[Rfam]
RNA sequence: GAUUUCGUUGAUUCGGUCGAAGCAUUUAGAGCGGUUGAUAAUUUCAGGAAAAAGAAAAGGAAGAUAGGAGAAAAGGAAGCGGUAAGUAGGAAUAAGUACAGACCGGAGAAACACGCCGGUCCUAAUUCGUUAUAUAUUAAAGAAGAAAAUG
Numbered sequence: 001g002a003u004u005u006c007g008u009u010g011a012u013u014c015g016g017u018c019g020a021a022g023c024a025u026u027u028a029g030a031g032c033g034g035u036u037g038a039u040a041a042u043u044u045c046a047g048g049a050a051a052a053a054g055a056a057a058a059g060g061a062a063g064a065u066a067g068g069a070g071a072a073a074a075g076g077a078a079g080c081g082g083u084a085a086g087u088a089g090g091a092a093u094a095a096g097u098a099c100a101g102a103c104c105g106g107a108g109a110a111a112c113a114c115g116c117c118g119g120u121c122c123u124a125a126u127u128c129g130u131u132a133u134a135u136a137u138u139a140a141a142g143a144a145g146a147a148a149a150u151g
Stems, first nucleotide, its partner, number of pairs: 025049003030044002034042003085131003089127002092097001100123001101121006
Tobamovirus internal ribosome entry site (IRES): a 151-nucleotide sequence from Tobamovirus plantagonis. Rfam links the family to the GO term ribosome binding. The match comes from Rfam's covariance-model search (141 bits). The organism belongs to Tobamovirus plantagonis, within Viruses. Rfam describes the family as follows. This family represents the Tobamovirus internal ribosome entry site (IRES). IRES elements allow cap and end-independent translation of mRNA in the host cell. The IRES achieves this by mediating the internal initiation of translation by recruiting a ribosomal 43S pre-initiation complex directly to the initiation codon and eliminates the requirement for eIF4F.